[Rfam]
RNA sequence: GAGCAAUGACGAAAAGGUUUUACUGUGGACCUGUAUAACUAUGAAGGUUUCUACACUUGCUCUGAGCUCA
Numbered sequence: 001g002a003g004c005a006a007u008g009a010c011g012a013a014a015a016g017g018u019u020u021u022a023c024u025g026u027g028g029a030c031c032u033g034u035a036u037a038a039c040u041a042u043g044a045a046g047g048u049u050u051c052u053a054c055a056c057u058u059g060c061u062c063u064g065a066g067c068u069c070a
Stems, first nucleotide, its partner, number of pairs: 001069004013034001015032005
Annotation
The record is a 70-nucleotide sequence from Capra hircus, which matches "Small nucleolar RNA U2-30" in Rfam. Its family is annotated with RNA processing and nucleolus in the Gene Ontology. A reference for the family is Tycowski et al. (2004), "Guide RNAs with 5' Caps and Novel Box C/D snoRNA-like Domains for Modification of snRNAs in Metazoa", Curr Biol. The family's consensus secondary structure is taken from published work. The match comes from Rfam's covariance-model search (82 bits). NCBI's taxonomy places the organism under Eukaryota, Dipnotetrapodomorpha, Mammalia, Theria, Capra. Rfam 15.1 lists 664 matches to the family in 136 species.